This 130-nucleotide sequence from Neomoorella thermoacetica belongs to the Rfam family "c-di-AMP riboswitch aptamer (ydaO/yuaA leader)".
Rfam's curators put it in the seed alignment.
RNA sequence: UAUUUUUUAGCACCGAAUUCCCGGGUAGGCGGGAAACGGGGGAUAUUUUUGGGGUGAAGAGCCAAAGGCUCCGGGCUAACUCUCGGUCCGAACCCGUCAACUAACCUCGUAGGUGUGCGAGAGUGGAGGU
Numbered sequence: 001u002a003u004u005u006u007u008u009a010g011c012a013c014c015g016a017a018u019u020c021c022c023g024g025g026u027a028g029g030c031g032g033g034a035a036a037c038g039g040g041g042g043a044u045a046u047u048u049u050u051g052g053g054g055u056g057a058a059g060a061g062c063c064a065a066a067g068g069c070u071c072c073g074g075g076c077u078a079a080c081u082c083u084c085g086g087u088c089c090g091a092a093c094c095c096g097u098c099a100a101c102u103a104a105c106c107u108c109g110u111a112g113g114u115g116u117g118c119g120a121g122a123g124u125g126g127a128g129g130u
Stems, first nucleotide, its partner, number of pairs: 011115004018035006036110006044051002052095003060070004073089004